[Rfam]
RNA sequence: AGGGCGACGGGGUCGACCGCCCGGGUCACCGUCAGAUAAUCGCGCAGCACCAUGCUGUGCCGGUCCUC
Numbered sequence: 001a002g003g004g005c006g007a008c009g010g011g012g013u014c015g016a017c018c019g020c021c022c023g024g025g026u027c028a029c030c031g032u033c034a035g036a037u038a039a040u041c042g043c044g045c046a047g048c049a050c051c052a053u054g055c056u057g058u059g060c061c062g063g064u065c066c067u068c
Stems, first nucleotide, its partner, number of pairs: 005062002008059002011030003015027004035056001037054002040052001042050001044048001
ASdes TB sRNA: a 68-nucleotide sequence from Thermostaphylospora chromogena.